[Rfam]
RNA sequence: AAUAGGAGAAUGACAAAUCAGAUUUUUUCUCCUGAUUUCUGUUUUUUAUUCCUGAAAAAAUUUAAAUUUAACUAAAAAUGCUAAAAAUAAGGAGGGAAAAUAUGAUUUAUCAUUCUCCUAUU
Dot-bracket structure: (((((((((((((.((((((.((((((.(((((.((((..(..((((...........................))))..)..))).).))))).)))))).)))))).)))))))))))))
Numbered sequence: 001a002a003u004a005g006g007a008g009a010a011u012g013a014c015a016a017a018u019c020a021g022a023u024u025u026u027u028u029c030u031c032c033u034g035a036u037u038u039c040u041g042u043u044u045u046u047u048a049u050u051c052c053u054g055a056a057a058a059a060a061u062u063u064a065a066a067u068u069u070a071a072c073u074a075a076a077a078a079u080g081c082u083a084a085a086a087a088u089a090a091g092g093a094g095g096g097a098a099a100a101u102a103u104g105a106u107u108u109a110u111c112a113u114u115c116u117c118c119u120a121u122u
Stems, first nucleotide, its partner, number of pairs: 001122013015108006022101006029094005035088001036086003041081001044078004